[Rfam]
Nucleotides: 107
Base pairs, nucleotide, nucleotide: 018099019098020097022095023094027090028089032085033084034083035082038080039079040078041077042076043075
Number, partner (000 for none) and nucleotide at each position: 001000u002000a003000u004000u005000a006000g007000u008000u009000c010000c011000u012000g013000c014000g015000a016000u017000a018099g019098g020097g021000a022095u023094c024000g025000c026000a027090u028089u029000g030000a031000a032085a033084a034083u035082c036000c037000u038080u039079u040078u041077u042076g043075c044000u045000u046000u047000u048000u049000g050000c051000u052000a053000u054000a055000u056000c057000a058000c059000u060000c061000u062000c063000c064000a065000a066000a067000c068000u069000a070000u071000u072000u073000c074000u075043g076042c077041a078040a079039a080038a081000a082035g083034a084033u085032u086000g087000u088000a089028a090027a091000g092000u093000a094023g095022a096000g097020c098019c099018c100000g101000g102000g103000c104000c105000c106000c107000a
A member of the RNA family "Flavo-1 RNA" from a Cytophagales bacterium, 107 nucleotides long.